The family of this 82-nucleotide sequence from Medicago truncatula is "Small nucleolar RNA Z102/R77".
A search with the family's covariance model found it, with a score of 58 bits.
NCBI's taxonomy places the organism under Eukaryota, Viridiplantae, fabids, Fabales, Medicago.
The family is grouped with related families in Rfam's "SNORD44 clan".
[Rfam]
RNA sequence: GAAUGAAACGAUGAUUUACUGUUUCCUAUUGGUUUGAUUGCCUGGGUGAUGGUGUUUUUGUAUUAGCUCUAUCUGACAAUUA
Numbered sequence: 001g002a003a004u005g006a007a008a009c010g011a012u013g014a015u016u017u018a019c020u021g022u023u024u025c026c027u028a029u030u031g032g033u034u035u036g037a038u039u040g041c042c043u044g045g046g047u048g049a050u051g052g053u054g055u056u057u058u059u060g061u062a063u064u065a066g067c068u069c070u071a072u073c074u075g076a077c078a079a080u081u082a
Base pairs, nucleotide, nucleotide: 002081003080004079036056039054040053041052042051